A member of the RNA family "mir-3492 microRNA precursor family" from Schistosoma mansoni, 78 nucleotides long. Gene Ontology terms of the family: RISC complex and miRNA-mediated post-transcriptional gene silencing. NCBI's taxonomy places the organism under Eukaryota, Eumetazoa, Protostomia, Neodermata, Schistosoma.

RNA sequence: AACCUUCUGAAUCCAUGCCGAAAUUUUGUCAGACACUAAACCAUCAGUACUGAUGAGACUCUCAAGAUAAGUAAAGUG
Numbered sequence: 001a002a003c004c005u006u007c008u009g010a011a012u013c014c015a016u017g018c019c020g021a022a023a024u025u026u027u028g029u030c031a032g033a034c035a036c037u038a039a040a041c042c043a044u045c046a047g048u049a050c051u052g053a054u055g056a057g058a059c060u061c062u063c064a065a066g067a068u069a070a071g072u073a074a075a076g077u078g
Stems, first nucleotide, its partner, number of pairs: 002077002005074002008071001011068003016064002020061002024058007